Overview: A member of the RNA family "U2 spliceosomal RNA" from Jaculus jaculus, 191 nucleotides long. U2 is a small nuclear RNA (snRNA) component of the spliceosome (involved in pre-mRNA splicing). Complementary binding between U2 snRNA (in an area lying towards the 5' end but 3' to hairpin I) and the branchpoint sequence (BPS) of the intron results the bulging out of an unpaired adenosine, on the BPS, which initiates a nucleophilic attack at the intronic 5' splice site, thus starting the first of two transesterification reactions that mediate splicing. The family's consensus secondary structure is taken from published work. A search with the family's covariance model found it, with a score of 160 bits.

[Rfam]
RNA sequence: AUCACUUCUCAGCCUUUUGGCUAAGAUCAAGUGUAGUAUCUGUUCUUGUCAGUUUAAUAUACGAUACAUCCUCUAUCUGAGGACAAUAUAUUAAAUGAAUUUUUGGAGCUCAGAGUUGGAAUAGGAGCUUGCUCCGUCCACUCCAAGCAUUGACCUGGUAUUAUGGUACCUCUAGGAACAGUGCACCCCCU
Dot-bracket structure: ......(((.((((....)))).)))....................((((............))))..(((((.....))))).............................((((.((....((((....)))).)).))))...((((((.(((((.............)))))..)))))).......